A member of the RNA family "Small nucleolar RNA SNORD109A" from Mesocricetus auratus, 66 nucleotides long.
RNA sequence: UGAUUGAUGAUGAGAACAAGUCUCUGAAUUCUGUGAUGGACUUAUACAAAUGGCAAUCUGAGGUCC
Numbered sequence: 001u002g003a004u005u006g007a008u009g010a011u012g013a014g015a016a017c018a019a020g021u022c023u024c025u026g027a028a029u030u031c032u033g034u035g036a037u038g039g040a041c042u043u044a045u046a047c048a049a050a051u052g053g054c055a056a057u058c059u060g061a062g063g064u065c066c
Base pairs, nucleotide, nucleotide: 002065003064004063005062

Rfam 15.1 lists 412 matches to the family in 134 species. Rfam's curators write: Humans have two copies of the SNORD109 gene, SNORD109A and SNORD109B. The base pairs follow the family's consensus structure, which was predicted with WAR.